[Rfam]
RNA sequence: GGUUGCAAAUUUGAGGCCAUAGCAGAAGCGCUCAUGGUGUGACCCUGUCAGAUUUCUGCAAAUUCUGCU
Numbered sequence: 001g002g003u004u005g006c007a008a009a010u011u012u013g014a015g016g017c018c019a020u021a022g023c024a025g026a027a028g029c030g031c032u033c034a035u036g037g038u039g040u041g042a043c044c045c046u047g048u049c050a051g052a053u054u055u056c057u058g059c060a061a062a063u064u065c066u067g068c069u
Stems, first nucleotide, its partner, number of pairs: 013045001015044002018041001021069007028040003049058003
The family of this 69-nucleotide RNA sequence from Alligator mississippiensis is "Mammalian CPEB3 ribozyme".
Pairs were carried over by alignment from the consensus structure, which is taken from published work.
Rfam describes the family as follows. The mammalian CPEB3 ribozyme is a self cleaving RNA located in the second intron of the CPEB3 gene which belongs to a family of genes regulating messenger RNA polyadenylation.
A search with the family's covariance model found it, with a score of 39 bits.
Taxonomically the source falls in Alligator (Eukaryota, Metazoa, Gnathostomata, Sauria).